Rfam assigns this 141-nucleotide RNA from Balaenoptera physalus to the family "U4 spliceosomal RNA".
U4 small nuclear RNA (U4 snRNA) is a component of the major U2-dependent spliceosome.
Rfam 15.1 lists 32,178 matches to the family in 2,547 species.
NCBI's taxonomy places the organism under Eukaryota, Eumetazoa, Amniota, Eutheria, Balaenoptera.

RNA sequence: GGCCUUGUACAGUGGCAGUAUCACAGCCAAUGAGGUUUAUCCGAGGUGUGAUUAUUGCUAAUUGAAAACUUUUCCCUAUACCUUUCCAUGACGACUUGAAAUAUUGUCGGCACUGGCAAUUUUUGACAGUCUCUGCAGAGA
Numbered sequence: 001g002g003c004c005u006u007g008u009a010c011a012g013u014g015g016c017a018g019u020a021u022c023a024c025a026g027c028c029a030a031u032g033a034g035g036u037u038u039a040u041c042c043g044a045g046g047u048g049u050g051a052u053u054a055u056u057g058c059u060a061a062u063u064g065a066a067a068a069c070u071u072u073u074c075c076c077u078a079u080a081c082c083u084u085u086c087c088a089u090g091a092c093g094a095c096u097u098g099a100a101a102u103a104u105u106g107u108c109g110g111c112a113c114u115g116g117c118a119a120u121u122u123u124u125g126a127c128a129g130u131c132u133c134u135g136c137a138g139a140g141a
Base pairs, nucleotide, nucleotide: 020052021051022050023049024048026047027046028045034042035041086116087115089112090111092109093108094107095106130141131140132139133138